A member of the RNA family "TPP riboswitch aptamer (THI element)" from Labrys okinawensis, 108 nucleotides long.
[Rfam]
RNA sequence: ACCCGUUCCGAGGGGUGUCCUGCGCGAGCGGGGCUGAGAUGGCCGAGAGCCGAACCCUUCGAACCUGAUCCGGGUCAUGCCGGCGAAGGGACGGGAACAGGGCUUCUG
Numbered sequence: 001a002c003c004c005g006u007u008c009c010g011a012g013g014g015g016u017g018u019c020c021u022g023c024g025c026g027a028g029c030g031g032g033g034c035u036g037a038g039a040u041g042g043c044c045g046a047g048a049g050c051c052g053a054a055c056c057c058u059u060c061g062a063a064c065c066u067g068a069u070c071c072g073g074g075u076c077a078u079g080c081c082g083g084c085g086a087a088g089g090g091a092c093g094g095g096a097a098c099a100g101g102g103c104u105u106c107u108g
Stems, first nucleotide, its partner, number of pairs: 006096005011058004016052001017034005041051003064089003070083004
Dot-bracket structure: .....(((((((((.((((((........)))))......(((.....))))..)))).....(((...((((......))))...)))..)))))............

The base pairs follow the family's consensus structure, which is taken from published work. Lineage of the source: Bacteria > Pseudomonadati > Alphaproteobacteria > Hyphomicrobiales > Labrys. Vitamin B(1) in its active form thiamin pyrophosphate (TPP) is an essential coenzyme that is synthesised by coupling of pyrimidine and thiazole moieties in bacteria. The previously detected thiamin-regulatory element, thi box was extended, resulting in a new, highly conserved RNA secondary structure, the THI element, which is widely distributed in eubacteria and also occurs in some archaea. Analysis of operon structures identified a large number of new candidate thiamin-regulated genes, mostly transporters, in various prokaryotic organisms.